Background:
The record is a 98-nucleotide sequence from Basilea psittacipulmonis, which matches "Bacterial small signal recognition particle RNA" in Rfam. The signal recognition particle (SRP) is a universally conserved ribonucleoprotein involved in the co-translational targeting of proteins to membranes. The base pairs follow the family's consensus structure, which is taken from published work.
RNA sequence: AGUGGGCCCCUUUGCAUGGGUCGGCGGUAAACCUGGUCAGGUCGGGAACGAAGCAGCCAUAGCCGUGCAGACUUAGUGACGAAGUAAGGCUCACUUUU
Numbered sequence: 001a002g003u004g005g006g007c008c009c010c011u012u013u014g015c016a017u018g019g020g021u022c023g024g025c026g027g028u029a030a031a032c033c034u035g036g037u038c039a040g041g042u043c044g045g046g047a048a049c050g051a052a053g054c055a056g057c058c059a060u061a062g063c064c065g066u067g068c069a070g071a072c073u074u075a076g077u078g079a080c081g082a083a084g085u086a087a088g089g090c091u092c093a094c095u096u097u098u
Stems, first nucleotide, its partner, number of pairs: 004092005010084005015076001017075006024066005034059004042051003